[Rfam]
Overview: Shown here is a 95-nucleotide RNA from Acetobacter aceti, a member of the family "Bacterial small signal recognition particle RNA". Rfam classes the family as a non-coding RNA gene.
RNA sequence: AGAGGCCUGUGAUGGACGGGCGCCUUGCCAACCCGGUCAGAUCCGGAAGGAAGCAGCCGCAGUAAGUUUUGCUCGGGUUGUCGCAGGUCUCUCAC
Numbered sequence: 001a002g003a004g005g006c007c008u009g010u011g012a013u014g015g016a017c018g019g020g021c022g023c024c025u026u027g028c029c030a031a032c033c034c035g036g037u038c039a040g041a042u043c044c045g046g047a048a049g050g051a052a053g054c055a056g057c058c059g060c061a062g063u064a065a066g067u068u069u070u071g072c073u074c075g076g077g078u079u080g081u082c083g084c085a086g087g088u089c090u091c092u093c094a095c
Stems, first nucleotide, its partner, number of pairs: 002093004006087006012078001017075006024066005034059004042051003
A reference for the family is Rosenblad et al. (2003), "SRPDB: Signal Recognition Particle Database", Nucleic Acids Res. The base pairs follow the family's consensus structure, which is taken from published work.